[Rfam]
Nucleotides: 098
Base pairs, nucleotide, nucleotide: 042095043094044093045092046091047090048089049088050087051086052085053084054083056081057080060077061076062075063074064073
Number, partner (000 for none) and nucleotide at each position: 001000g002000a003000u004000a005000u006000u007000u008000g009000a010000a011000u012000u013000u014000u015000u016000g017000a018000u019000a020000a021000u022000g023000u024000a025000a026000c027000a028000a029000c030000u031000a032000u033000a034000a035000a036000g037000a038000a039000a040000a041000u042095a043094a044093a045092g046091g047090a048089g049088c050087a051086a052085a053084a054083a055000u056081c057080a058000c059000c060077u061076u062075c063074u064073u065000g066000u067000u068000c069000u070000a071000u072000c073064a074063a075062g076061a077060a078000g079000a080057u081056g082000c083054u084053u085052u086051u087050u088049g089048c090047u091046c092045c093044u094043u095042u096000a097000u098000u
Plastid-psbA-1 3UTR RNA: a 98-nucleotide RNA from Asclepias syriaca. The family is grouped with related families in Rfam's "Plastid-psbA 3UTR RNA clan". It is annotated as a cis-regulatory element. NCBI's taxonomy places the organism under Eukaryota, Viridiplantae, Spermatophyta, Asclepiadinae, Asclepias. From the family's description: Plastid psbA-1 is a non-coding RNA (ncRNA) present in plastids. It was identified in inverted repeat sequences in the 3 prime untranslate region (3UTR) of photosystem II quinone-binding protein (psbA). The base pairs follow the family's consensus structure, which was predicted with LocARNA.